[Rfam]
RNA sequence: GAGUUCGAUCCGUUGACCCCCCGGUCAGUGGAUCGGAGCCGGGGAACCACUUCCCGUCUGGGGUGAAUCGCCUCCAAGGACAUGCGCUCGCGCAUGCGGAGGAGGCGUAGGGCAUGUCGUGCCCGAACCCGUCAGCUCACCCGGUAGACGUACGACACACAAGGG
Numbered sequence: 001g002a003g004u005u006c007g008a009u010c011c012g013u014u015g016a017c018c019c020c021c022c023g024g025u026c027a028g029u030g031g032a033u034c035g036g037a038g039c040c041g042g043g044g045a046a047c048c049a050c051u052u053c054c055c056g057u058c059u060g061g062g063g064u065g066a067a068u069c070g071c072c073u074c075c076a077a078g079g080a081c082a083u084g085c086g087c088u089c090g091c092g093c094a095u096g097c098g099g100a101g102g103a104g105g106c107g108u109a110g111g112g113c114a115u116g117u118c119g120u121g122c123c124c125g126a127a128c129c130c131g132u133c134a135g136c137u138c139a140c141c142c143g144g145u146a147g148a149c150g151u152a153c154g155a156c157a158c159a160c161a162a163g164g165g
Base pairs, nucleotide, nucleotide: 011150012149013148014147019036020035038145039144040143041142042141043140048060049059061130062129063128069107070106071105072104073103074102075101110124111123112122113121